[Rfam]
RNA sequence: AUAAUGAUACUUUUGAGUAGCCACAGACUCAAUCAAUGGGCUCAACUCUGUGAGAACCACAGAGAGGUGAAAAUCCUAUGG
Numbered sequence: 001a002u003a004a005u006g007a008u009a010c011u012u013u014u015g016a017g018u019a020g021c022c023a024c025a026g027a028c029u030c031a032a033u034c035a036a037u038g039g040g041c042u043c044a045a046c047u048c049u050g051u052g053a054g055a056a057c058c059a060c061a062g063a064g065a066g067g068u069g070a071a072a073a074u075c076c077u078a079u080g081g
Base pairs, nucleotide, nucleotide: 012078013045014044015043016042017041018040046064047063048062050060051059052058065077066076067075
The record is an 81-nucleotide sequence, which matches "pemK RNA" in Rfam.
By type it is a cis-regulatory element.